[Rfam]
RNA sequence: GGAUAAUCCCGGGCGACCGGGGAAAGGUCGGCGACAGCUGGUGUCGCCCUCCCCUGCGACGCGGCGCAAGCCAAUGUGGCAGGCAGAUAUCACCAGCUCCUCUGAUCCGGAGUCGUGUCCGAUCAGUUCACACGAACCAGGAGCUGAGCGGUGAGCGGCGAUGAGAAACCGCCCGCGAGCCGAGUUACGCCCACAGGGAGUUUCGACCUGUGCGCGGACGCAGUUACCCAGAGGGUUUUGGUUGCUACUGCGCAAGACCAGAACGCAGUCGCGUUUCCCGGCGGGACGACCCCGCCAGAAGGCCCCGCUCGCUCGCACGAGCAGGGCGCGCAAGGGAGACUCGGUUGCGGGGAGAGAGCGAGCCUGGCAAAGCCCGCGAACCUCCUCGAUUGGGGCGGCCCGAAAAACGCGUCACCCCACUGCAAAAGCGAAUGCAACCUGAGAGGUAAGAGGUCAGACCCGUAACGCGGGGCCAACGUCCGGCCAAAAGCCGGAGCCGACCCCGUGGCAACGGUGCCGACGCGAGAGACAGAGAUUGCAGGCGUGUCCGCACCCCGUCCGGCGUGCCGCUUCCGGCAGGAAGCGUCCGAACCGGGCGAAGAGGCCUCACUCGAAAGAUUCCAACCGGAAACGGUCGGAACGGUCCCGCCAUGAGACCGAGACAUCCGCAUGCCGCGGAGAGUGGCGUCGGGAAGCACACGGCCCGCGAAAGCGAGAGCGCCCAACGGUGUGCACCGGGAAAGAGCGCGUGGCGAACGCC
Numbered sequence: 001g002g003a004u005a006a007u008c009c010c011g012g013g014c015g016a017c018c019g020g021g022g023a024a025a026g027g028u029c030g031g032c033g034a035c036a037g038c039u040g041g042u043g044u045c046g047c048c049c050u051c052c053c054c055u056g057c058g059a060c061g062c063g064g065c066g067c068a069a070g071c072c073a074a075u076g077u078g079g080c081a082g083g084c085a086g087a088u089a090u091c092a093c094c095a096g097c098u099c100c101u102c103u104g105a106u107c108c109g110g111a112g113u114c115g116u117g118u119c120c121g122a123u124c125a126g127u128u129c130a131c132a133c134g135a136a137c138c139a140g141g142a143g144c145u146g147a148g149c150g151g152u153g154a155g156c157g158g159c160g161a162u163g164a165g166a167a168a169c170c171g172c173c174c175g176c177g178a179g180c181c182g183a184g185u186u187a188c189g190c191c192c193a194c195a196g197g198g199a200g201u202u203u204c205g206a207c208c209u210g211u212g213c214g215c216g217g218a219c220g221c222a223g224u225u226a227c228c229c230a231g232a233g234g235g236u237u238u239u240g241g242u243u244g245c246u247a248c249u250g251c252g253c254a255a256g257a258c259c260a261g262a263a264c265g266c267a268g269u270c271g272c273g274u275u276u277c278c279c280g281g282c283g284g285g286a287c288g289a290c291c292c293c294g295c296c297a298g299a300a301g302g303c304c305c306c307g308c309u310c311g312c313u314c315g316c317a318c319g320a321g322c323a324g325g326g327c328g329c330g331c332a333a334g335g336g337a338g339a340c341u342c343g344g345u346u347g348c349g350g351g352g353a354g355a356g357a358g359c360g361a362g363c364c365u366g367g368c369a370a371a372g373c374c375c376g377c378g379a380a381c382c383u384c385c386u387c388g389a390u391u392g393g394g395g396c397g398g399c400c401c402g403a404a405a406a407a408c409g410c411g412u413c414a415c416c417c418c419a420c421u422g423c424a425a426a427a428g429c430g431a432a433u434g435c436a437a438c439c440u441g442a443g444a445g446g447u448a449a450g451a452g453g454u455c456a457g458a459c460c461c462g463u464a465a466c467g468c469g470g471g472g473c474c475a476a477c478g479u480c481c482g483g484c485c486a487a488a489a490g491c492c493g494g495a496g497c498c499g500a501c502c503c504c505g506u507g508g509c510a511a512c513g514g515u516g517c518c519g520a521c522g523c524g525a526g527a528g529a530c531a532g533a534g535a536u537u538g539c540a541g542g543c544g545u546g547u548c549c550g551c552a553c554c555c556c557g558u559c560c561g562g563c564g565u566g567c568c569g570c571u572u573c574c575g576g577c578a579g580g581a582a583g584c585g586u587c588c589g590a591a592c593c594g595g596g597c598g599a600a601g602a603g604g605c606c607u608c609a610c611u612c613g614a615a616a617g618a619u620u621c622c623a624a625c626c627g628g629a630a631a632c633g634g635u636c637g638g639a640a641c642g643g644u645c646c647c648g649c650c651a652u653g654a655g656a657c658c659g660a661g662a663c664a665u666c667c668g669c670a671u672g673c674c675g676c677g678g679a680g681a682g683u684g685g686c687g688u689c690g691g692g693a694a695g696c697a698c699a700c701g702g703c704c705c706g707c708g709a710a711a712g713c714g715a716g717a718g719c720g721c722c723c724a725a726c727g728g729u730g731u732g733c734a735c736c737g738g739g740a741a742a743g744a745g746c747g748c749g750u751g752g753c754g755a756a757c758g759c760c
Base pairs, nucleotide, nucleotide: 008021009020010019011018012017026052027051030048031047032046033045034044035043036042059077060076061075063072094146095145096144097143098142099141100140101139108121109120110119111118113135114134115133116132117131149182150181151180152179155176156175157173158172159171165204166203167202168201169200188216189215190214192212193211194210195209196208197207219252220251221250222249223248226236227235228234240439241438242437243436244435245434280296281295282294283293284292285291302327303326304325305324307322308321309320310319311318349387350386351385352384353383354382358377359376360375362373363372399411401409402408443612444611445610450608451607452606453605466507467506468505469504470503471502472501479495480494481493482492483491484490515552516551517550519548520547521546522545523544524543557597558596559595560594561593562592565589566588568585569584570583571582572581573580574579619640620639621638622637624635625634626633627632641659642658643657644656645655648686649685650684651683665679666678667677668676669675695733696732697731698730699729700728701726702719703718705714706713707712745759746758747757

A member of the RNA family "MISL RNA", 760 nucleotides long.
The sequence is in the family's curated seed alignment.